[Rfam]
Nucleotides: 069
Stems, first nucleotide, its partner, number of pairs: 001067005009056004021051003029044003
Number, partner (000 for none) and nucleotide at each position: 001067a002066c003065u004064g005063u006000g007000g008000a009056g010055c011054g012053u013000g014000a015000a016000a017000c018000c019000a020000g021051c022050c023049u024000g025000a026000g027000u028000a029044g030043u031042c032000g033000g034000c035000u036000u037000u038000a039000u040000a041000a042031g043030a044029c045000g046000a047000a048000a049023g050022g051021g052000a053012a054011c055010g056009c057000u058000a059000u060000g061000a062000a063005g064004c065003a066002g067001u068000a069000a